[Rfam]
RNA sequence: GCUGCUCUAUAAAUAAUCACACACCUCUCCAUGGUGAACAGCAGGCAACGAUCUUAUGGUCGGCUGAGAUGUGAUA
Numbered sequence: 001g002c003u004g005c006u007c008u009a010u011a012a013a014u015a016a017u018c019a020c021a022c023a024c025c026u027c028u029c030c031a032u033g034g035u036g037a038a039c040a041g042c043a044g045g046c047a048a049c050g051a052u053c054u055u056a057u058g059g060u061c062g063g064c065u066g067a068g069a070u071g072u073g074a075u076a
Stems, first nucleotide, its partner, number of pairs: 001042004006037002023035003049062005
Dot-bracket structure: ((((.((...............(((.......))))).))))......(((((....)))))..............